[Rfam]
RNA sequence: GGUUGAUGACCGGUUCGUAAUAACGUUUCAGGACCCGGGGGCGGUACCCGGCGCCUCCACCAUAAGCGCAUCGUGAUGCGCUUCUGAUGGGGGCGAAACAGGAUCGACUGGGCGGUAAAGGGAUCGCGAGUCCUAUCUCGUUUCGGCGAGAGACGGUGCGACUGUCGGUAAGGUUUCGACCGGUUUGGCGUAGGCGACCCUAUUCCAGGCAUCUGACCAAAACUCUAAAUGCCAACGAUAACGUUGUCAUGGAUGCCCGCCUCGCGGCGUAA
Dot-bracket structure: ((.(........((((........(((.(((...(((((.......)))))(((((((..............................)))))))............)))))).......)))).....).))...........................................................................................................................................
RNA: permuted transfer-messenger RNA